[Rfam]
RNA sequence: GGUCUCACCUCGGGGUGCUCUGUCAGGGGCUGAGAUGCGUUUUCGCAAACCCGUUGAACCUGAACCGGUUAAGACCGGCGGAGGGAAGGUAUCCGGGCACUCU
Numbered sequence: 001g002g003u004c005u006c007a008c009c010u011c012g013g014g015g016u017g018c019u020c021u022g023u024c025a026g027g028g029g030c031u032g033a034g035a036u037g038c039g040u041u042u043u044c045g046c047a048a049a050c051c052c053g054u055u056g057a058a059c060c061u062g063a064a065c066c067g068g069u070u071a072a073g074a075c076c077g078g079c080g081g082a083g084g085g086a087a088g089g090u091a092u093c094c095g096g097g098c099a100c101u102c103u
Stems, first nucleotide, its partner, number of pairs: 007090004011053004016047001017030005037046003059084003065078004